[Rfam]
The record is a 146-nucleotide sequence from Candidatus Paraburkholderia kirkii, which matches "Burkholderia sRNA 7" in Rfam. It scores 80 bits against the family's covariance model. The source organism's lineage runs through Bacteria, Pseudomonadati, Pseudomonadota, Betaproteobacteria and Candidatus Paraburkholderia kirkii. Did not show any change in expression in iron-depletion and hydrogen peroxide (oxidative stress) treatment. Constitutively expressed. Possibly targets the GTPase, ObgE. The family's consensus secondary structure was predicted with R-scape. A reference for the family is Ghosh et al. (2017), "Identification of novel small RNAs in Burkholderia cenocepacia KC-01 expressed under iron limitation and oxidative stress conditions", Microbiology.
RNA sequence: GUAUCCUUCGCGAAUGAUCAGAAUCCUGAACGCACUCCGACGUCGCCGCUCCCAUAGGGAUGCCGCUGGCUCGUCACGCAUUUGCGCUCUCGGUGCGGUUUGCUCGAAGCGUAUGAAAUGAAGCCACGGAAUUCCGUGGCUUUUGU
Numbered sequence: 001g002u003a004u005c006c007u008u009c010g011c012g013a014a015u016g017a018u019c020a021g022a023a024u025c026c027u028g029a030a031c032g033c034a035c036u037c038c039g040a041c042g043u044c045g046c047c048g049c050u051c052c053c054a055u056a057g058g059g060a061u062g063c064c065g066c067u068g069g070c071u072c073g074u075c076a077c078g079c080a081u082u083u084g085c086g087c088u089c090u091c092g093g094u095g096c097g098g099u100u101u102g103c104u105c106g107a108a109g110c111g112u113a114u115g116a117a118a119u120g121a122a123g124c125c126a127c128g129g130a131a132u133u134c135c136g137u138g139g140c141u142u143u144u145g146u
Stems, first nucleotide, its partner, number of pairs: 008115001010087003031078002038073003042070003045066002048063002053058001120143010
Dot-bracket structure: .......(.(((..................((.....(((.(((((.((...(....)...)).)).))))))...))......)))...........................)....((((((((((....))))))))))...